[Rfam]
Nucleotides: 073
Stems, first nucleotide, its partner, number of pairs: 001016006024073004030068002035049004050064004
Number, partner (000 for none) and nucleotide at each position: 001016a002015g003014c004013a005012c006011u007000u008000u009000u010000u011006a012005g013004u014003g015002c016001u017000g018000g019000c020000a021000g022000a023000u024073g025072u026071a027070a028000a029000u030068c031067c032000g033000a034000c035049g036048u037047g038046c039000c040000u041000u042000u043000g044000g045000u046038g047037c048036a049035c050064g051063g052062c053061c054000c055000a056000u057000u058000c059000g060000u061053g062052g063051c064050u065000c066000g067031g068030g069000a070027u071026u072025a073024c

A member of the RNA family "S15-Methanomicrobia ribosomal protein leader", 73 nucleotides long. For this family Rfam cites "Discovery of 20 novel ribosomal leader candidates in bacteria and archaea" (Eckert and Weinberg, BMC Microbiol, 2020). By type it is a cis-regulatory leader.